A member of the RNA family "Ribosomal protein L10 leader" from Clostridium senegalense, 133 nucleotides long. The base pairs follow the family's consensus structure, which was predicted with CMfinder. It is annotated as a cis-regulatory leader. About the family: This family is a putative r-protein leader autoregulatory structure found in B. subtilis and other low-GC Gram-positive bacteria. On this family, see Zengel and Lindahl, Prog Nucleic Acid Res Mol Biol 1994: "Diverse mechanisms for regulating ribosomal protein synthesis in Escherichia coli". The source organism's lineage runs through Bacteria, Bacillati, Bacillota, Eubacteriales and Clostridium. The match comes from Rfam's covariance-model search (82 bits).
RNA sequence: UUGAAUAUAAUAAAUAUUCCGUAGACAGUAGGUGCCUUUGGCGUAACAGAUUAACCUACCGAGGGUUCUAAUAGAACGUGAUGAUUUUAUUGGUCUCUUCGUAUGUUUGCGGGGAGACUUUUAAUUUUAAAUA
Numbered sequence: 001u002u003g004a005a006u007a008u009a010a011u012a013a014a015u016a017u018u019c020c021g022u023a024g025a026c027a028g029u030a031g032g033u034g035c036c037u038u039u040g041g042c043g044u045a046a047c048a049g050a051u052u053a054a055c056c057u058a059c060c061g062a063g064g065g066u067u068c069u070a071a072u073a074g075a076a077c078g079u080g081a082u083g084a085u086u087u088u089a090u091u092g093g094u095c096u097c098u099u100c101g102u103a104u105g106u107u108u109g110c111g112g113g114g115a116g117a118c119u120u121u122u123a124a125u126u127u128u129a130a131a132u133a
Stems, first nucleotide, its partner, number of pairs: 028059006034042003093118010